Shown here is a 355-nucleotide sequence from Agitococcus lubricus, a member of the family "Bacterial RNase P class A". The family's RNA type in Rfam is ribozyme. The source organism's lineage runs through Bacteria, Pseudomonadati, Pseudomonadota, Moraxellales and Agitococcus. Ribonuclease P (RNase P) is a ubiquitous endoribonuclease, found in archaea, bacteria and eukarya as well as chloroplasts and mitochondria. Its best characterised activity is the generation of mature 5'-ends of tRNAs by cleaving the 5'-leader elements of precursor-tRNAs. Cellular RNase Ps are ribonucleoproteins. RNA from bacterial RNase Ps retains its catalytic activity in the absence of the protein subunit, i.e. it is a ribozyme.
RNA sequence: AGAGUCGGCCAGACGGUCGCCGCCUGCAAAGGGGGAGGAAAGUCUGGGCUUCGUAGGGCAAAGUGCUAGGUAACGCCUAGGCAGCGUGAGCUGACGGCAAGUGCAACAGAGAGCUGAACCGCCGAUGUUUGGUGUGCAAACACCAAGCAGGUAAGGGUGAAAAGGUGCGGUAAGAGCGCACCGCGCAACUGGCAACAGGAGCGGCAGGGUAAACCCCACUUGAAGCAAGACCAAAUAGGCAUCCUUUGGCGUGGCCCGCGCUGGAUGCGGGUAGGUUGCUUGAGCGUAUAGGUGACUAUACGCCUAGAGGAAUGACCGUCCUCGACAGAACCCAGCUUAUCGGCUGACUCUCAUU
Numbered sequence: 001a002g003a004g005u006c007g008g009c010c011a012g013a014c015g016g017u018c019g020c021c022g023c024c025u026g027c028a029a030a031g032g033g034g035g036a037g038g039a040a041a042g043u044c045u046g047g048g049c050u051u052c053g054u055a056g057g058g059c060a061a062a063g064u065g066c067u068a069g070g071u072a073a074c075g076c077c078u079a080g081g082c083a084g085c086g087u088g089a090g091c092u093g094a095c096g097g098c099a100a101g102u103g104c105a106a107c108a109g110a111g112a113g114c115u116g117a118a119c120c121g122c123c124g125a126u127g128u129u130u131g132g133u134g135u136g137c138a139a140a141c142a143c144c145a146a147g148c149a150g151g152u153a154a155g156g157g158u159g160a161a162a163a164g165g166u167g168c169g170g171u172a173a174g175a176g177c178g179c180a181c182c183g184c185g186c187a188a189c190u191g192g193c194a195a196c197a198g199g200a201g202c203g204g205c206a207g208g209g210u211a212a213a214c215c216c217c218a219c220u221u222g223a224a225g226c227a228a229g230a231c232c233a234a235a236u237a238g239g240c241a242u243c244c245u246u247u248g249g250c251g252u253g254g255c256c257c258g259c260g261c262u263g264g265a266u267g268c269g270g271g272u273a274g275g276u277u278g279c280u281u282g283a284g285c286g287u288a289u290a291g292g293u294g295a296c297u298a299u300a301c302g303c304c305u306a307g308a309g310g311a312a313u314g315a316c317c318g319u320c321c322u323c324g325a326c327a328g329a330a331c332c333c334a335g336c337u338u339a340u341c342g343g344c345u346g347a348c349u350c351u352c353a354u355u
Base pairs, nucleotide, nucleotide: 001351002350003349004348005347006346007345008344009343010342011340012320013319014318015317016316017315018314020035021034023032024031025030040338041337042336044335045334046333047332048331049225050224051223052222056257057256058255059254061221062220063219064218065217066080067079068078069077070076081095082093083092084091085090096216097215101214102213103210104209119156120155121152122151123150126149127148128147129146130145131144132143133142134141135140164182165181166180167179168178169177183205184203185202186201189198190197191196229277230276231275232274239268240267241266242265243264244263248262249261250260251259252258284303285302286301287300288299289298290297291296